This 138-nucleotide RNA sequence from Antrostomus carolinensis belongs to the Rfam family "Small nucleolar RNA SNORA15".
The match comes from Rfam's covariance-model search (69 bits).
Rfam describes the family as follows. ACA15 is a member of the H/ACA class of snoRNA that guide the sites of modification of uridines to pseudouridines.
Rfam links the family to the GO terms nucleolus and RNA processing.
Lineage of the source: Eukaryota > Eumetazoa > Craniata > Euteleostomi > Antrostomus.
On this family, see Huttenhofer et al., EMBO J 2001: "RNomics: an experimental approach that identifies 201 candidates for novel, small, non-messenger RNAs in mouse".
Nucleotides: 138
Stems, first nucleotide, its partner, number of pairs: 001057006014044005068131002070126005085121001088118009
Number, partner (000 for none) and nucleotide at each position: 001057g002056c003055a004054u005053g006052g007000a008000u009000g010000a011000a012000u013000u014044c015043u016042g017041c018040a019000c020000u021000a022000g023000c024000u025000u026000u027000c028000c029000u030000c031000a032000g033000u034000a035000g036000c037000u038000a039000a040018u041017g042016c043015a044014g045000u046000c047000a048000g049000a050000c051000a052006c053005u054004a055003u056002g057001c058000c059000a060000g061000a062000a063000u064000a065000a066000a067000u068131u069130c070126c071125u072124u073123u074122c075000u076000c077000a078000c079000a080000c081000u082000c083000g084000g085121a086000u087000u088118g089117g090116u091115g092114u093113g094112c095111u096110u097000u098000u099000u100000a101000u102000a103000u104000g105000a106000g107000a108000a109000u110096g111095g112094g113093c114092a115091u116090g117089c118088c119000c120000u121085u122074g123073g124072a125071a126070g127000u128000g129000g130069g131068a132000u133000a134000c135000a136000g137000a138000a